RNA: Group II catalytic intron D1-D4-4
RNA sequence: UUGCCUGUGAAAGUCCGGUCGGAGUAAGGGCCAAGCUGCUCCGUAGCUAACAGGCGGCUUGGAAGAGAGAUCUUUCGGUCGAAGCCCUGUGAUGCGAAUCUGCAGGCCGUAACAUGA
Numbered sequence: 001u002u003g004c005c006u007g008u009g010a011a012a013g014u015c016c017g018g019u020c021g022g023a024g025u026a027a028g029g030g031c032c033a034a035g036c037u038g039c040u041c042c043g044u045a046g047c048u049a050a051c052a053g054g055c056g057g058c059u060u061g062g063a064a065g066a067g068a069g070a071u072c073u074u075u076c077g078g079u080c081g082a083a084g085c086c087c088u089g090u091g092a093u094g095c096g097a098a099u100c101u102g103c104a105g106g107c108c109g110u111a112a113c114a115u116g117a
Stems, first nucleotide, its partner, number of pairs: 020043005050090005055081005065072002094110003